[Rfam]
The family of this 130-nucleotide RNA from Triplophysa tibetana is "Small nucleolar RNA SNORA75". Rfam classes the family as an H/ACA-box small nucleolar RNA. Rfam links the family to the GO terms nucleolus and RNA processing. Taxonomically the source falls in Triplophysa (Eukaryota, Chordata, Actinopterygii, Otophysi). The match comes from Rfam's covariance-model search (82 bits).
RNA sequence: UACUUCUCAUGAGCUCCUCGCUGUCUAUCCAGUGGUGGUGUAUGGAUUCGCACGAGAAGUAGAUUCAAAUUCACAUUCUAUAAGGUGUUGCCACACUGUUGUGGACAAAUUUAUCGGAUGUGAGAAAGUU
Number, nucleotide and partner (000 for none) at each position: 001u000002a000003c059004u058005u057006c056007u055008c054009a000010u000011g000012a000013g051014c050015u046016c045017c044018u000019c000020g000021c038022u037023g036024u035025c034026u000027a000028u000029c000030c000031a000032g000033u000034g025035g024036u023037g022038g021039u000040g000041u000042a000043u000044g017045g016046a015047u000048u000049c000050g014051c013052a000053c000054g008055a007056g006057a005058a004059g003060u000061a000062g000063a000064u000065u000066c000067a000068a000069a000070u000071u123072c122073a121074c120075a119076u118077u000078c000079u000080a000081u000082a000083a000084g000085g000086u000087g000088u000089u000090g000091c104092c103093a102094c101095a100096c000097u000098g000099u000100u095101g094102u093103g092104g091105a000106c000107a000108a000109a000110u000111u000112u000113a000114u000115c000116g000117g000118a076119u075120g074121u073122g072123a071124g000125a000126a000127a000128g000129u000130u000